About this RNA
MIR480 microRNA precursor family: a 139-nucleotide RNA sequence from Populus trichocarpa. Rfam links the family to the GO terms miRNA-mediated post-transcriptional gene silencing and RISC complex. The literature on the family includes a 2005 paper in Plant Cell by Lu et al., "Novel and mechanical stress-responsive MicroRNAs in Populus trichocarpa that are absent from Arabidopsis".

[Rfam]
RNA sequence: UAAUCUAUUUGGGGCAGAUCCUCAUUUAGUUAUGACAGACUUACACCUGAUUUCUUAGAAUCACUCGUUAUCACAAGCCCGAUUAUAUCAUUGACAUUGAAAAACAGAAAAUAAUUAUUGUGUGAAUGUUAGUGAGCCA
Numbered sequence: 001u002a003a004u005c006u007a008u009u010u011g012g013g014g015c016a017g018a019u020c021c022u023c024a025u026u027u028a029g030u031u032a033u034g035a036c037a038g039a040c041u042u043a044c045a046c047c048u049g050a051u052u053u054c055u056u057a058g059a060a061u062c063a064c065u066c067g068u069u070a071u072c073a074c075a076a077g078c079c080c081g082a083u084u085a086u087a088u089c090a091u092u093g094a095c096a097u098u099g100a101a102a103a104a105c106a107g108a109a110a111a112u113a114a115u116u117a118u119u120g121u122g123u124g125a126a127u128g129u130u131a132g133u134g135a136g137c138c139a
Stems, first nucleotide, its partner, number of pairs: 005136002008132002012129001014127001018123002024118002027114001029112003
The base pairs follow the family's consensus structure, which was predicted with WAR. The source organism's lineage runs through Eukaryota, Embryophyta, Tracheophyta, Malpighiales and Populus. Rfam's curators put it in the seed alignment.